[Rfam]
Nucleotides: 092
Base pairs, nucleotide, nucleotide: 002091003090004089005088006087007086008085013043014042015041016040017039021032022031023030028078029077044072045071046070047069049068051064052063053062054061076084
Number, partner (000 for none) and nucleotide at each position: 001000a002091u003090u004089c005088c006087a007086u008085c009000a010000a011000g012000a013043c014042g015041a016040g017039g018000c019000g020000a021032g022031g023030g024000c025000g026000g027000c028078g029077g030023c031022c032021c033000g034000a035000u036000g037000a038000c039017c040016c041015u042014c043013g044072g045071c046070c047069a048000g049068c050000u051064c052063c053062c054061g055000g056000c057000a058000u059000c060000c061054c062053g063052g064051g065000g066000a067000u068049g069047u070046g071045g072044c073000a074000a075000u076084g077029c078028c079000g080000c081000c082000u083000g084076c085008g086007a087006u088005g089004g090003a091002g092000g